[Rfam]
RNA sequence: GGUUGGACGGACUAAUUAUAGUUCAUUUUCAAGGAAUAGGCUUCUGGGGUGGGAAGUC
Numbered sequence: 001g002g003u004u005g006g007a008c009g010g011a012c013u014a015a016u017u018a019u020a021g022u023u024c025a026u027u028u029u030c031a032a033g034g035a036a037u038a039g040g041c042u043u044c045u046g047g048g049g050u051g052g053g054a055a056g057u058c
Base pairs, nucleotide, nucleotide: 003032004031005030006027007026009024010023011022012021013020014019039058040057041056042055043054044053045052
Shown here is a 58-nucleotide sequence from Desulfosporosinus fructosivorans, a member of the family "Na+ riboswitch aptamer (DUF1646)". Gene Ontology terms of the family: regulation of gene expression and sodium ion binding. A search with the family's covariance model found it, with a score of 50 bits. On this family, see White et al., Nat Chem Biol 2022: "Na(+) riboswitches regulate genes for diverse physiological processes in bacteria".